[Rfam]
RNA sequence: UAACGGGUGCAAGUCCCGUCAUGGCAAAAGCCGGAAGCCAUGUAGCUUGGAUGGCAUGGGGUGAUGGAAACGUUACCUUUUGAAGCCCAUCGACAAAGUGUCGCAAGGCGGCAUGAGCAACUAUCCGGGUUGUAACGAGA
Number, nucleotide and partner (000 for none) at each position: 001u000002a000003a000004c000005g000006g000007g000008u000009g000010c000011a000012a000013g000014u000015c000016c000017c000018g000019u000020c042021a041022u040023g039024g038025c000026a000027a000028a000029a000030g000031c000032c000033g000034g000035a000036a000037g000038c024039c023040a022041u021042g020043u000044a000045g000046c000047u000048u000049g000050g091051a090052u089053g088054g087055c082056a081057u000058g079059g078060g077061g000062u000063g000064a073065u000066g071067g000068a000069a000070a000071c066072g000073u064074u000075a000076c000077c060078u059079u058080u000081u056082g055083a000084a000085g000086c000087c054088c053089a052090u051091c050092g000093a000094c000095a000096a000097a000098g114099u113100g112101u111102c110103g109104c000105a000106a000107g000108g000109c103110g102111g101112c100113a099114u098115g000116a000117g133118c132119a131120a000121c000122u000123a000124u000125c000126c000127g000128g000129g000130u000131u119132g118133u117134a000135a000136c000137g000138a000139g000140a000
The family of this 140-nucleotide RNA sequence from Candidatus Brocadia sinica is "Group II catalytic intron D1-D4-4". For this family Rfam cites "The ins and outs of group II introns" (Bonen and Vogel, Trends Genet, 2001). Gene Ontology term of the family: Group II intron splicing. Taxonomically the source falls in Candidatus Brocadia sinica (Bacteria, Planctomycetota, Candidatus Brocadiia, Candidatus Brocadiales). The pairing is the family consensus, mapped onto this sequence. Group II introns are found in rRNA, tRNA and mRNA of organelles in fungi, plants and protists, and also in mRNA in bacteria. The match comes from Rfam's covariance-model search (108 bits).